The record is a 57-nucleotide RNA sequence from Acidipropionibacterium virtanenii, which matches "msiK RNA" in Rfam. Pairs were carried over by alignment from the consensus structure, which is taken from published work. Lineage of the source: Bacteria > Actinomycetota > Actinomycetes > Propionibacteriales > Acidipropionibacterium. A search with the family's covariance model found it, with a score of 62 bits.
RNA sequence: GGGCUUCCCCCUUCCACAACGGAUCGUCGGGCACGUACCUGCCCGUGGAAAGGAACA
Numbered sequence: 001g002g003g004c005u006u007c008c009c010c011c012u013u014c015c016a017c018a019a020c021g022g023a024u025c026g027u028c029g030g031g032c033a034c035g036u037a038c039c040u041g042c043c044c045g046u047g048g049a050a051a052g053g054a055a056c057a
Stems, first nucleotide, its partner, number of pairs: 010052001012050005028045006